[Rfam]
Glycine riboswitch aptamer: a 99-nucleotide sequence from Cupriavidus necator. NCBI's taxonomy places the organism under Bacteria, Pseudomonadota, Burkholderiales, Burkholderiaceae, Cupriavidus necator. The match comes from Rfam's covariance-model search (62 bits).

RNA sequence: AAUGUGAUGCAGGGAGAGACUGUCGCGGUGCCCGCCGCGGACAGCGCCGAAGGAGCAACCGCCCCGGAAACUCUCAGGCAAAAGGACCGGCAUCACCAG
Numbered sequence: 001a002a003u004g005u006g007a008u009g010c011a012g013g014g015a016g017a018g019a020c021u022g023u024c025g026c027g028g029u030g031c032c033c034g035c036c037g038c039g040g041a042c043a044g045c046g047c048c049g050a051a052g053g054a055g056c057a058a059c060c061g062c063c064c065c066g067g068a069a070a071c072u073c074u075c076a077g078g079c080a081a082a083a084g085g086a087c088c089g090g091c092a093u094c095a096c097c098a099g
Stems, first nucleotide, its partner, number of pairs: 006094005012088002020044004046079003049075002053073003059067002